[Rfam]
RNA sequence: ACUGUCCUUGUCUGGGGGUGGAUUGGGCUGUUCAAUGAACGACUAGUGAGAGCAUCCCUGCUGACACCUUACCAACACAUUCGCAUCACCUGAACUUCCUAGUUUAGGCUAUGGUGCAAUUUUUGGAACC
Numbered sequence: 001a002c003u004g005u006c007c008u009u010g011u012c013u014g015g016g017g018g019u020g021g022a023u024u025g026g027g028c029u030g031u032u033c034a035a036u037g038a039a040c041g042a043c044u045a046g047u048g049a050g051a052g053c054a055u056c057c058c059u060g061c062u063g064a065c066a067c068c069u070u071a072c073c074a075a076c077a078c079a080u081u082c083g084c085a086u087c088a089c090c091u092g093a094a095c096u097u098c099c100u101a102g103u104u105u106a107g108g109c110u111a112u113g114g115u116g117c118a119a120u121u122u123u124u125g126g127a128a129c130c
Stems, first nucleotide, its partner, number of pairs: 006018004021061001023060001025058001027056001029054005039047002083117006089108008
RNA: U4atac minor spliceosomal RNA